RNA sequence: GCCGAGCUGGGUAACGUCAGCUUAUGACCUGAGUGGGGGCAACAAGAUGAUUGAACAAGGCUAUGGCCUGCUAAGCUGGACCGGAGGUUGCAACUUGCUGGCUUGCCCACUCCAAGUUGAGAGUUGAGUCAUGAGUCCUUUGCGAAGGCAUGGGUUUCCUGGUCUCCUAGACAGGAGGGCACCGGCGUCAGGCUGGUUUCACAGAGCAGCGACAACCUCCGGUUCUUGACAGUGGAGGGAUAACAGGCUGCUGCACCUCCUGUCCCACCAAAUGAGCUUGGUGAGCCCUUGCCCUUGAACAAUCAUUUUU
Numbered sequence: 001g002c003c004g005a006g007c008u009g010g011g012u013a014a015c016g017u018c019a020g021c022u023u024a025u026g027a028c029c030u031g032a033g034u035g036g037g038g039g040c041a042a043c044a045a046g047a048u049g050a051u052u053g054a055a056c057a058a059g060g061c062u063a064u065g066g067c068c069u070g071c072u073a074a075g076c077u078g079g080a081c082c083g084g085a086g087g088u089u090g091c092a093a094c095u096u097g098c099u100g101g102c103u104u105g106c107c108c109a110c111u112c113c114a115a116g117u118u119g120a121g122a123g124u125u126g127a128g129u130c131a132u133g134a135g136u137c138c139u140u141u142g143c144g145a146a147g148g149c150a151u152g153g154g155u156u157u158c159c160u161g162g163u164c165u166c167c168u169a170g171a172c173a174g175g176a177g178g179g180c181a182c183c184g185g186c187g188u189c190a191g192g193c194u195g196g197u198u199u200c201a202c203a204g205a206g207c208a209g210c211g212a213c214a215a216c217c218u219c220c221g222g223u224u225c226u227u228g229a230c231a232g233u234g235g236a237g238g239g240a241u242a243a244c245a246g247g248c249u250g251c252u253g254c255a256c257c258u259c260c261u262g263u264c265c266c267a268c269c270a271a272a273u274g275a276g277c278u279u280g281g282u283g284a285g286c287c288c289u290u291g292c293c294c295u296u297g298a299a300c301a302a303u304c305a306u307u308u309u310u
Stems, first nucleotide, its partner, number of pairs: 001040003004023007028037003044309010056297005061291001063289001065287002069283009078265004083260004089255002093252001099250007107239002110237005116230009126166003129162003133158003137154003141150003174220005184213001186211003193204003
The family of this 310-nucleotide RNA from Vigna angularis is "Plant signal recognition particle RNA". Its Rfam clan is "SRP clan". It scores 217 bits against the family's covariance model.